[Rfam]
RNA sequence: GAUGAAGAAAAGGCAGAAACGAAAUAUUGUCCGUUUCGGCUUUAAUAUAAGGAAACAAA
Numbered sequence: 001g002a003u004g005a006a007g008a009a010a011a012g013g014c015a016g017a018a019a020c021g022a023a024a025u026a027u028u029g030u031c032c033g034u035u036u037c038g039g040c041u042u043u044a045a046u047a048u049a050a051g052g053a054a055a056c057a058a059a
Base pairs, nucleotide, nucleotide: 008046012041013040014039016037017036018035019034020033021032